A member of the RNA family "Small nucleolar RNA R30/Z108" from Lupinus angustifolius, 98 nucleotides long. It is annotated as a C/D-box small nucleolar RNA. It scores 91 bits against the family's covariance model. NCBI's taxonomy places the organism under Eukaryota, eudicotyledons, Papilionoideae, genistoids sensu lato, Lupinus. snoR30 is a C/D box small nucleolar RNA which acts as a methylation guide for 18S ribosomal RNA in plants.
RNA sequence: GGGUUUCACGAUGAGGAUAAAAAGCUCCCUCUUCUGAAAUCUUUGAGGAAGUCCGCUGGCAGAAUCGAACCUUAAAACUUAUUGCCACCACUGAGUGA
Numbered sequence: 001g002g003g004u005u006u007c008a009c010g011a012u013g014a015g016g017a018u019a020a021a022a023a024g025c026u027c028c029c030u031c032u033u034c035u036g037a038a039a040u041c042u043u044u045g046a047g048g049a050a051g052u053c054c055g056c057u058g059g060c061a062g063a064a065u066c067g068a069a070c071c072u073u074a075a076a077a078c079u080u081a082u083u084g085c086c087a088c089c090a091c092u093g094a095g096u097g098a
Stems, first nucleotide, its partner, number of pairs: 006098004